[Rfam]
Rfam assigns this 109-nucleotide sequence from Hominimerdicola alba to the family "TPP riboswitch aptamer (THI element)". Gene Ontology term of the family: thiamine pyrophosphate binding.
RNA sequence: AAAUAAAAUAAGGGGAGCUUGUAGACAGGCUGAGAGGAUAGCGACCGAGUUAUCGACCCAUAACCUGAUUUGGAUAAUGCCAACGUAGGGAAUAUGAUACCGAUAUUUC
Numbered sequence: 001a002a003a004u005a006a007a008a009u010a011a012g013g014g015g016a017g018c019u020u021g022u023a024g025a026c027a028g029g030c031u032g033a034g035a036g037g038a039u040a041g042c043g044a045c046c047g048a049g050u051u052a053u054c055g056a057c058c059c060a061u062a063a064c065c066u067g068a069u070u071u072g073g074a075u076a077a078u079g080c081c082a083a084c085g086u087a088g089g090g091a092a093u094a095u096g097a098u099a100c101c102g103a104u105a106u107u108u109c
Stems, first nucleotide, its partner, number of pairs: 008095003012059003017030005037054005064089004070083004